The family of this 80-nucleotide RNA sequence is "RAGATH-28 RNA".

RNA sequence: GGGCGGUUGAUGCGUCCCGCGCGGUACGAGCCGGAGGACAUAUGGGCGCUACACGGGCCGGAUCGGCCCGGUGGCGGAGC
Numbered sequence: 001g002g003g004c005g006g007u008u009g010a011u012g013c014g015u016c017c018c019g020c021g022c023g024g025u026a027c028g029a030g031c032c033g034g035a036g037g038a039c040a041u042a043u044g045g046g047c048g049c050u051a052c053a054c055g056g057g058c059c060g061g062a063u064c065g066g067c068c069c070g071g072u073g074g075c076g077g078a079g080c
Stems, first nucleotide, its partner, number of pairs: 001022001003020004054070007
Overview:
The base pairs follow the family's consensus structure, which is taken from published work.